[Rfam]
Shown here is a 166-nucleotide RNA from Oryza meyeriana, a member of the family "MIR2118 microRNA precursor family".
NCBI's taxonomy places the organism under Eukaryota, Streptophytina, Liliopsida, Poales, Oryza meyeriana.
For this family Rfam cites "Characterization and expression profiles of miRNAs in rice seeds" (Xue et al., Nucleic Acids Res, 2009).
RNA sequence: GAUCGGAAGAGGAAGAAAAGAGGGCCAAGGAGCAGUGGGCAUGGGAACAUGAAGGAAGGCUUAAGCUGUCUCCACUCCUCACCUGGAAUUGGAGAUGGUGAUAUGAGUUUUCCUGAUGCCUCCUAAGCCUAUUGUUUCUAGGUGCUCCUUCCUCUCCCUUUUGUCC
Numbered sequence: 001g002a003u004c005g006g007a008a009g010a011g012g013a014a015g016a017a018a019a020g021a022g023g024g025c026c027a028a029g030g031a032g033c034a035g036u037g038g039g040c041a042u043g044g045g046a047a048c049a050u051g052a053a054g055g056a057a058g059g060c061u062u063a064a065g066c067u068g069u070c071u072c073c074a075c076u077c078c079u080c081a082c083c084u085g086g087a088a089u090u091g092g093a094g095a096u097g098g099u100g101a102u103a104u105g106a107g108u109u110u111u112c113c114u115g116a117u118g119c120c121u122c123c124u125a126a127g128c129c130u131a132u133u134g135u136u137u138c139u140a141g142g143u144g145c146u147c148c149u150u151c152c153u154c155u156c157c158c159u160u161u162u163g164u165c166c
Stems, first nucleotide, its partner, number of pairs: 009157001011155003015151003020147003025142002028139007036131005042125005048118003052114001054113009